[Rfam]
RNA sequence: CCUGCCCUCAGGGGCAUUGCAGAUGUGGCCUCUGUGUCACACUUGUGUCAUUGGGUGGCAGAAAGAGAGGCUUGUCUAUGCUCAGUGUUCUGGCCUGUGAACAUCUGGAUUAAUUAAGAGUCUGACACU
Numbered sequence: 001c002c003u004g005c006c007c008u009c010a011g012g013g014g015c016a017u018u019g020c021a022g023a024u025g026u027g028g029c030c031u032c033u034g035u036g037u038c039a040c041a042c043u044u045g046u047g048u049c050a051u052u053g054g055g056u057g058g059c060a061g062a063a064a065g066a067g068a069g070g071c072u073u074g075u076c077u078a079u080g081c082u083c084a085g086u087g088u089u090c091u092g093g094c095c096u097g098u099g100a101a102c103a104u105c106u107g108g109a110u111u112a113a114u115u116a117a118g119a120g121u122c123u124g125a126c127a128c129u
Stems, first nucleotide, its partner, number of pairs: 002061005007055005013049003019046004024041006065126001068123005073117001079112002082108004086103005
Notes:
The record is a 129-nucleotide RNA from Ursus maritimus, which matches "Small nucleolar RNA SNORA17" in Rfam. Rfam classes the family as an H/ACA-box small nucleolar RNA. The base pairs follow the family's consensus structure, which was predicted with RNAalifold. Rfam describes the family as follows. snoRNA ACA 17 belongs to the H/ACA family of snoRNAs and is predicted to guide pseudouridylation of the 28S rRNA at positions U4659 and U4598. The literature on the family includes a 1997 paper in J Mol Biol by Ofengand and Bakin, "Mapping to nucleotide resolution of pseudouridine residues in large subunit ribosomal RNAs from representative eukaryotes, prokaryotes, archaebacteria, mitochondria and chloroplasts". It scores 108 bits against the family's covariance model. The family has 53 seed sequences and 5,784 matches in Rfam 15.1.